[Rfam]
RNA sequence: ACCAUUUUAGUAAGACAAAGGGUCCAGUGUUAUAAAAGCCCCGCCGCAGUUCGGGGCUUUUUACUAUGUGACCUCUGCUGCAGCGACUUAGCUUUCAGGUAAGGCGAUUUGGCAGUCAAAAACACUGGGCGUUUACGCCCUUUUUUU
Numbered sequence: 001a002c003c004a005u006u007u008u009a010g011u012a013a014g015a016c017a018a019a020g021g022g023u024c025c026a027g028u029g030u031u032a033u034a035a036a037a038g039c040c041c042c043g044c045c046g047c048a049g050u051u052c053g054g055g056g057c058u059u060u061u062u063a064c065u066a067u068g069u070g071a072c073c074u075c076u077g078c079u080g081c082a083g084c085g086a087c088u089u090a091g092c093u094u095u096c097a098g099g100u101a102a103g104g105c106g107a108u109u110u111g112g113c114a115g116u117c118a119a120a121a122a123c124a125c126u127g128g129g130c131g132u133u134u135a136c137g138c139c140c141u142u143u144u145u146u147u
Base pairs, nucleotide, nucleotide: 035060036059037058038057039056040055041054042053043052127140128139129138130137
The family of this 147-nucleotide RNA sequence from Pseudidiomarina salinarum is "Gammaprotebacteria rimP leader". It is annotated as a cis-regulatory leader. A search with the family's covariance model found it, with a score of 62 bits. The family's consensus secondary structure is taken from published work.